About this RNA: The family of this 66-nucleotide RNA sequence from Bombyx mori is "mir-2774 microRNA precursor family". Rfam links the family to the GO terms miRNA-mediated post-transcriptional gene silencing and RISC complex. Taxonomically the source falls in Bombyx (Eukaryota, Protostomia, Pterygota, Obtectomera). A reference for the family is Liu et al. (2010), "MicroRNAs of Bombyx mori identified by Solexa sequencing", BMC Genomics. The sequence is in the family's curated seed alignment.

RNA sequence: ACGAUAAGGGAUCGCCGGUCUACCGAGCAAUAUCACCCGCUCGGUGGAAGAUCGUCCCUUAAUCUU
Numbered sequence: 001a002c003g004a005u006a007a008g009g010g011a012u013c014g015c016c017g018g019u020c021u022a023c024c025g026a027g028c029a030a031u032a033u034c035a036c037c038c039g040c041u042c043g044g045u046g047g048a049a050g051a052u053c054g055u056c057c058c059u060u061a062a063u064c065u066u
Base pairs, nucleotide, nucleotide: 004063005062009057010056011055014052016050019048020047021046022045023044024043025042026041027040028039